[Rfam]
RNA sequence: AAGAGACCUCCCAAAGAUCAAGGCUGAAGCAGGCGCAGAUUGUAAAAAAGCGGGAUGACGUGUGAAGGUCAUCCCGC
Dot-bracket structure: ....(..((.............((....))......))..)........((((..((((........))))..))))
Numbered sequence: 001a002a003g004a005g006a007c008c009u010c011c012c013a014a015a016g017a018u019c020a021a022g023g024c025u026g027a028a029g030c031a032g033g034c035g036c037a038g039a040u041u042g043u044a045a046a047a048a049a050g051c052g053g054g055a056u057g058a059c060g061u062g063u064g065a066a067g068g069u070c071a072u073c074c075c076g077c
Stems, first nucleotide, its partner, number of pairs: 005041001008038002023030002050077004056071004
Pseudomonas sRNA P31: a 77-nucleotide RNA sequence from Stutzerimonas stutzeri. A reference for the family is Livny et al. (2006), "Identification of 17 Pseudomonas aeruginosa sRNAs and prediction of sRNA-encoding genes in 10 diverse pathogens using the bioinformatic tool sRNAPredict2", Nucleic Acids Res. The match comes from Rfam's covariance-model search (53 bits). By type it is a small RNA.